[Rfam]
RNA sequence: AAAAAGCGUUAGGGAUAGCAGCGGCAGCUUUUAAAGCGCUGCAAUUUAUGGCGCUUUAAAACUAUAGCGGAUAGCCCGACCCCAU
Numbered sequence: 001a002a003a004a005a006g007c008g009u010u011a012g013g014g015a016u017a018g019c020a021g022c023g024g025c026a027g028c029u030u031u032u033a034a035a036g037c038g039c040u041g042c043a044a045u046u047u048a049u050g051g052c053g054c055u056u057u058a059a060a061a062c063u064a065u066a067g068c069g070g071a072u073a074g075c076c077c078g079a080c081c082c083c084a085u
Stems, first nucleotide, its partner, number of pairs: 012077003016073002021068002026063002029060001032058010
Shown here is an 85-nucleotide RNA sequence from Salinimicrobium sediminis, a member of the family "Flavo-1 RNA". Rfam classes the family as a small RNA.